[Rfam]
RNA sequence: CUGUCGUGCAUUGUAGUUGCAUUGCAUGUGUCUGUACCAGGUGCAAUGUACCUGCAGCGCAACACAG
Numbered sequence: 001c002u003g004u005c006g007u008g009c010a011u012u013g014u015a016g017u018u019g020c021a022u023u024g025c026a027u028g029u030g031u032c033u034g035u036a037c038c039a040g041g042u043g044c045a046a047u048g049u050a051c052c053u054g055c056a057g058c059g060c061a062a063c064a065c066a067g
Base pairs, nucleotide, nucleotide: 001067002066003065004064006063007061008060009059011057012056013055014054015053016052019049021047022046023045024044025043026042027041
RNA: mir-33 microRNA precursor family